[Rfam]
RNA sequence: UGUGGGGGUGGGGGUCCCUCAGCCAGGAUUGCGAGGGGGCACAGGCCAGGCUGAGGGACCUCACUGAUGCAUG
Numbered sequence: 001u002g003u004g005g006g007g008g009u010g011g012g013g014g015u016c017c018c019u020c021a022g023c024c025a026g027g028a029u030u031g032c033g034a035g036g037g038g039g040c041a042c043a044g045g046c047c048a049g050g051c052u053g054a055g056g057g058a059c060c061u062c063a064c065u066g067a068u069g070c071a072u073g
Base pairs, nucleotide, nucleotide: 001071002070004068007065008064011062012061013060014059015058016057017056018055019054020053021052022051023050024049026047027046029044030043031042033040
Shown here is a 73-nucleotide sequence from Myotis davidii, a member of the family "mir-9193 microRNA precursor family". Its family is annotated with RISC complex and miRNA-mediated post-transcriptional gene silencing in the Gene Ontology. The base pairs follow the family's consensus structure, which was predicted with RNAalifold. Taxonomically the source falls in Myotis (Eukaryota, Eumetazoa, Teleostomi, Chiroptera).